[Rfam]
Overview:
This 159-nucleotide RNA from Butyrivibrio sp. Su6 belongs to the Rfam family "Clostridiales-1 RNA". The base pairs follow the family's consensus structure, which is taken from published work. The family's RNA type in Rfam is small RNA.

RNA sequence: UUAUGACAAGGGGAUAAAAAUAAUAAUGCGUUCAUGCUUGCAUGAUAAGCAUUAUCAUUUUGAGACCCGCAAAAACAUGAGGAAGUAGCGCUUUGGGGCGGAUUCCGAAUGUUUUUAGAAUUGCGAGAGUUGCUUGCAACGGAGCAAUUCGUGUCAUAA
Dot-bracket structure: (((((((...((....(((((.(((((((.((((((....))))).).))))))).)))))....))...((((((((..((((...((.(....).))...))))..)))))))).(((((((....((((....))))...)))))))..)))))))